[Rfam]
RNA sequence: AAUAGGAAAAGGCAAACUAUUCUAAAGAAUAGGACGCAAAGCUUAGGGUCUAAGGUUUAAUAAACUACGAUCGCCUGGUUACCAAU
Numbered sequence: 001a002a003u004a005g006g007a008a009a010a011g012g013c014a015a016a017c018u019a020u021u022c023u024a025a026a027g028a029a030u031a032g033g034a035c036g037c038a039a040a041g042c043u044u045a046g047g048g049u050c051u052a053a054g055g056u057u058u059a060a061u062a063a064a065c066u067a068c069g070a071u072c073g074c075c076u077g078g079u080u081a082c083c084a085a086u
Base pairs, nucleotide, nucleotide: 012037013036017032018031019030020029021028022027040080041079042078043077045076046075047074048071049070050069055065056064057063058062
Rfam assigns this 86-nucleotide sequence from Salipaludibacillus neizhouensis to the family "c-di-GMP-I riboswitch aptamer". Lineage of the source: Bacteria > Bacillati > Bacillota > Bacilli > Salipaludibacillus. A search with the family's covariance model found it, with a score of 80 bits.